A member of the RNA family "mir-92 microRNA precursor family" from Neodrepanis coruscans, 78 nucleotides long.
[Rfam]
RNA sequence: CUUUCUUCACAGGUUGGGAUCAGUUGCAAUGCCGUGUGUGUCUGUGGUAGUGAACUUAUUCCAGCCUGUUGAGAUUGG
Numbered sequence: 001c002u003u004u005c006u007u008c009a010c011a012g013g014u015u016g017g018g019a020u021c022a023g024u025u026g027c028a029a030u031g032c033c034g035u036g037u038g039u040g041u042c043u044g045u046g047g048u049a050g051u052g053a054a055c056u057u058a059u060u061c062c063a064g065c066c067u068g069u070u071g072a073g074a075u076u077g078g
Stems, first nucleotide, its partner, number of pairs: 004074003009069006016062005022056003027052002030049005

Gene Ontology terms of the family: miRNA-mediated post-transcriptional gene silencing and RISC complex. Taxonomically the source falls in Neodrepanis (Eukaryota, Opisthokonta, Theropoda, Passeriformes). The family's consensus secondary structure was predicted with PFOLD.